[Rfam]
RNA: Clostridiales-3 RNA
RNA sequence: AAGUGUAUCGAAGGACCUAACCGGUGAAGAUCAAGCGAGUCACGGACAUCUAAGGAUGAGCACAAGCUGCUAUCAUGGCGGAGCGAUAAUAACCCACAGAGGGAUAGAAGAUAUUCCUUAUCCUCGCAACGGCAUAAGAGGAGAUAGUCAUUAAAUGGCGUCGUGAACACGUAAGUGUCAAUGGACAGUGAACGCUGAAAGAAAAGGCGGAAACUGACAGCAGAUAUCUAAAGAGAUAUCUGUUUAGUGGGUCCCAUGUGUACGGGCGAUUAGGGGCUAGAGAUAGCCGGAUGUACACCUACA
Numbered sequence: 001a002a003g004u005g006u007a008u009c010g011a012a013g014g015a016c017c018u019a020a021c022c023g024g025u026g027a028a029g030a031u032c033a034a035g036c037g038a039g040u041c042a043c044g045g046a047c048a049u050c051u052a053a054g055g056a057u058g059a060g061c062a063c064a065a066g067c068u069g070c071u072a073u074c075a076u077g078g079c080g081g082a083g084c085g086a087u088a089a090u091a092a093c094c095c096a097c098a099g100a101g102g103g104a105u106a107g108a109a110g111a112u113a114u115u116c117c118u119u120a121u122c123c124u125c126g127c128a129a130c131g132g133c134a135u136a137a138g139a140g141g142a143g144a145u146a147g148u149c150a151u152u153a154a155a156u157g158g159c160g161u162c163g164u165g166a167a168c169a170c171g172u173a174a175g176u177g178u179c180a181a182u183g184g185a186c187a188g189u190g191a192a193c194g195c196u197g198a199a200a201g202a203a204a205a206g207g208c209g210g211a212a213a214c215u216g217a218c219a220g221c222a223g224a225u226a227u228c229u230a231a232a233g234a235g236a237u238a239u240c241u242g243u244u245u246a247g248u249g250g251g252u253c254c255c256a257u258g259u260g261u262a263c264g265g266g267c268g269a270u271u272a273g274g275g276g277c278u279a280g281a282g283a284u285a286g287c288c289g290g291a292u293g294u295a296c297a298c299c300u301a302c303a
Stems, first nucleotide, its partner, number of pairs: 007031003015025003095165003099119007121142005143162003147159005168177003200229003258298006275288005